Rfam assigns this 70-nucleotide RNA from Chelydra serpentina to the family "Small nucleolar RNA SNORD34".
Taxonomically the source falls in Chelydra (Eukaryota, Vertebrata, Archelosauria, Durocryptodira).
RNA sequence: CGUGUCCAUGAUGCUCCAUCUACCUACAUUGUUUGAUGCUGGGUGAGAAAAAAUUUGACUCUGAGACACG
Numbered sequence: 001c002g003u004g005u006c007c008a009u010g011a012u013g014c015u016c017c018a019u020c021u022a023c024c025u026a027c028a029u030u031g032u033u034u035g036a037u038g039c040u041g042g043g044u045g046a047g048a049a050a051a052a053a054u055u056u057g058a059c060u061c062u063g064a065g066a067c068a069c070g
Stems, first nucleotide, its partner, number of pairs: 001070001003068004
Rfam's curators write: snoRNA U34 is found in intron 5 of the ribosomal protein L13a gene in humans. The family's RNA type in Rfam is C/D-box small nucleolar RNA. The match comes from Rfam's covariance-model search (40 bits). The family's consensus secondary structure was predicted with PFOLD.